A member of the RNA family "Vault RNA" from Monodelphis domestica, 113 nucleotides long. Taxonomically the source falls in Monodelphis (Eukaryota, Gnathostomata, Didelphimorphia, Didelphinae). Rfam's curators put it in the seed alignment. By type it is a non-coding RNA gene.

RNA sequence: GGGCUGGCUUUAGCCCAGCGGUUCCUUCCCUCAUUUAAACAUUUCUUACAAUUUCCCUUGGUGGUUCGAAUCCCAGGACCAUCAGAGACCCGCGGGCGCUUCCCGGUCCUUUU
Numbered sequence: 001g002g003g004c005u006g007g008c009u010u011u012a013g014c015c016c017a018g019c020g021g022u023u024c025c026u027u028c029c030c031u032c033a034u035u036u037a038a039a040c041a042u043u044u045c046u047u048a049c050a051a052u053u054u055c056c057c058u059u060g061g062u063g064g065u066u067c068g069a070a071u072c073c074c075a076g077g078a079c080c081a082u083c084a085g086a087g088a089c090c091c092g093c094g095g096g097c098g099c100u101u102c103c104c105g106g107u108c109c110u111u112u113u
Stems, first nucleotide, its partner, number of pairs: 002108006013097004018093004026087003